[Rfam]
RNA sequence: UAGUGUUACAGCUCUUUUAGAAUUUGUCUAGCAGGUGUUCUGGUCUCUACCAAAAGACCCCU
Number, nucleotide and partner (000 for none) at each position: 001u000002a000003g000004u000005g000006u000007u000008a000009c000010a000011g000012c000013u000014c000015u000016u000017u000018u000019a000020g000021a000022a000023u000024u000025u000026g000027u000028c000029u000030a000031g000032c000033a000034g059035g058036u057037g000038u055039u054040c000041u052042g051043g050044u049045c000046u000047c000048u000049a044050c043051c042052a041053a000054a039055a038056g000057a036058c035059c034060c000061c000062u000
The record is a 62-nucleotide RNA sequence from Otolemur garnettii, which matches "U7 small nuclear RNA" in Rfam. The base pairs follow the family's consensus structure, which was predicted with PFOLD. Rfam describes the family as follows. Animal histone pre-mRNAs are spliced by a different mechanism than nuclear pre-mRNAs and self-splicing introns. NCBI's taxonomy places the organism under Eukaryota, Metazoa, Bilateria, Dipnotetrapodomorpha, Otolemur. A reference for the family is Marz et al. (2007), "U7 snRNAs: a computational survey", Genomics Proteomics Bioinformatics.